[Rfam]
RNA sequence: CCUGGCACUAUGAGGAAUAAAAUUAAAUGAACCAUGGAGGUCAGAAGACUAAUGACAUCAAAUCUAAAGGCCUUUUAUGUUCUGAGUGCCUA
Numbered sequence: 001c002c003u004g005g006c007a008c009u010a011u012g013a014g015g016a017a018u019a020a021a022a023u024u025a026a027a028u029g030a031a032c033c034a035u036g037g038a039g040g041u042c043a044g045a046a047g048a049c050u051a052a053u054g055a056c057a058u059c060a061a062a063u064c065u066a067a068a069g070g071c072c073u074u075u076u077a078u079g080u081u082c083u084g085a086g087u088g089c090c091u092a
Base pairs, nucleotide, nucleotide: 004090005089006088007087008086010080011079012078013076014075040049041048042047
Shown here is a 92-nucleotide RNA sequence from Ananas comosus, a member of the family "Small nucleolar RNA Z162". Its family is annotated with RNA processing and nucleolus in the Gene Ontology. It scores 46 bits against the family's covariance model.